[Rfam]
RNA sequence: CCAUCAUCACCAUCACCCUGACUAGUCUUUCAGGCGAUUGGUGCUGGAAGACGUUUAAAUCUUCCAGUGGCGCAGAGCGAAAAGAGAGCCCUCGGAAGAUUGACUUCCGAGGGUUUUUUUAU
Dot-bracket structure: .......(((.(((..(((((........))))).)))..)))((((((((........))))))))...............((((((((((((((((.....))))))))))))))))...

Rfam assigns this 122-nucleotide RNA from Brenneria goodwinii to the family "Histidine operon leader". Rfam's curators write: At least 6 amino acid operons are known to be regulated by attenuation. Taxonomically the source falls in Brenneria (Bacteria, Pseudomonadota, Gammaproteobacteria, Enterobacterales). Rfam classes the family as a cis-regulatory leader.